[Rfam]
RNA sequence: UAACUUGAAUUAAGGCCGUAAAAGGCUUUAGGCUGGUGAUUUUACAAUCACCAGCCU
Numbered sequence: 001u002a003a004c005u006u007g008a009a010u011u012a013a014g015g016c017c018g019u020a021a022a023a024g025g026c027u028u029u030a031g032g033c034u035g036g037u038g039a040u041u042u043u044a045c046a047a048u049c050a051c052c053a054g055c056c057u
Base pairs, nucleotide, nucleotide: 013028014027015026016025017024031056032055033054034053035052036051037050038049039048040047
Shown here is a 57-nucleotide RNA sequence from Lysobacter sp. N42, a member of the family "Pseudomonas sRNA P26". Rfam classes the family as a non-coding RNA gene. The match comes from Rfam's covariance-model search (40 bits). Rfam describes the family as follows. This small RNA (sRNA) was computationally identified in the genome of the opportunistic pathogen Pseudomonas aeruginosa and its expression verified by northern blot analysis. P26 is conserved across many Gammaproteobacteria species and appears to be consistently located between the DNA directed RNA polymerase (beta subunit) and 50S ribosomal protein L7/L12 genes.